mir-153 microRNA precursor family: a 72-nucleotide RNA sequence from Toxocara canis. The match comes from Rfam's covariance-model search (55 bits). The organism belongs to Toxocara, within Eukaryota.
Nucleotides: 072
Stems, first nucleotide, its partner, number of pairs: 002071002005068002008065012024049006
Number, partner (000 for none) and nucleotide at each position: 001000u002071c003070g004000c005068u006067c007000a008065u009064c010063a011062u012061u013060u014059u015058u016057g017056u018055g019054g020000a021000u022000g023000a024049g025048c026047a027046a028045u029044u030000u031000u032000g033000u034000c035000a036000a037000u038000c039000g040000a041000a042000u043000c044029a045028a046027u047026u048025g049024c050000a051000u052000a053000g054019u055018c056017a057016c058015a059014a060013a061012a062011g063010u064009g065008a066000u067006g068005g069000a070003c071002g072000c